[Rfam]
RNA: Group II catalytic intron D1-D4-6
RNA sequence: AAAGUCCUGCUGUAGAAGGUAGAGCCAGUACUACUACAUAGCGAGUCUUGCAACUCUGGCGGUAACAAAAGAGUUGAAGCGUAGACAGCGAAAUUUGCGAGCCGUAACAAACGUGAACAUGAAUUAGCCUCGAAAGUGGUCAUCAUGGCUGCUGAUACCGUCGCAUAGGUAGCAAGCAACAGACAUAGAACGGUCAACUGGUAAAUCCAAUCUAUGUCAGCCAUCGGGGUUCUAAAUGA
Numbered sequence: 001a002a003a004g005u006c007c008u009g010c011u012g013u014a015g016a017a018g019g020u021a022g023a024g025c026c027a028g029u030a031c032u033a034c035u036a037c038a039u040a041g042c043g044a045g046u047c048u049u050g051c052a053a054c055u056c057u058g059g060c061g062g063u064a065a066c067a068a069a070a071g072a073g074u075u076g077a078a079g080c081g082u083a084g085a086c087a088g089c090g091a092a093a094u095u096u097g098c099g100a101g102c103c104g105u106a107a108c109a110a111a112c113g114u115g116a117a118c119a120u121g122a123a124u125u126a127g128c129c130u131c132g133a134a135a136g137u138g139g140u141c142a143u144c145a146u147g148g149c150u151g152c153u154g155a156u157a158c159c160g161u162c163g164c165a166u167a168g169g170u171a172g173c174a175a176g177c178a179a180c181a182g183a184c185a186u187a188g189a190a191c192g193g194u195c196a197a198c199u200g201g202u203a204a205a206u207c208c209a210a211u212c213u214a215u216g217u218c219a220g221c222c223a224u225c226g227g228g229g230u231u232c233u234a235a236a237u238g239a
Stems, first nucleotide, its partner, number of pairs: 012037004018032004039091001041089002045086004049081002051076007061066001127230006145224006151177003156171004182218008192208001